Lysine riboswitch aptamer: a 177-nucleotide sequence from Gemella sp. GH3.
Rfam's curators write: Riboswitches are metabolite binding domains within certain messenger RNAs that serve as precision sensors for their corresponding targets.
Lineage of the source: Bacteria > Bacillati > Bacilli > Caryophanales > Gemella.
RNA sequence: AGGUGAGGUGGAGGUCGCGGUUUUUAAGAGUAACUGUAAUGAGGUCUAGGAACCUAUGAUGUGCAGUGAAAGGAAACAUCGCCGAAAUGAUAUGUUGACCCUAUAGACAUAUUGUUGGGACUAUGUUUAAUAAACAUAGGACUGUCACAGUUUUUACUGUGUUGAGCUACUUUACUU
Numbered sequence: 001a002g003g004u005g006a007g008g009u010g011g012a013g014g015u016c017g018c019g020g021u022u023u024u025u026a027a028g029a030g031u032a033a034c035u036g037u038a039a040u041g042a043g044g045u046c047u048a049g050g051a052a053c054c055u056a057u058g059a060u061g062u063g064c065a066g067u068g069a070a071a072g073g074a075a076a077c078a079u080c081g082c083c084g085a086a087a088u089g090a091u092a093u094g095u096u097g098a099c100c101c102u103a104u105a106g107a108c109a110u111a112u113u114g115u116u117g118g119g120a121c122u123a124u125g126u127u128u129a130a131u132a133a134a135c136a137u138a139g140g141a142c143u144g145u146c147a148c149a150g151u152u153u154u155u156a157c158u159g160u161g162u163u164g165a166g167c168u169a170c171u172u173u174a175c176u177u
Base pairs, nucleotide, nucleotide: 006172007171008170009169010168011167017082018081019080020079021078023076024075025074033067034066035065036064037063038062086116087115088114089113090112091111092110093109094108095107096106117143118142121139122138123137124136125135126134127133146161147160148159149158150157151156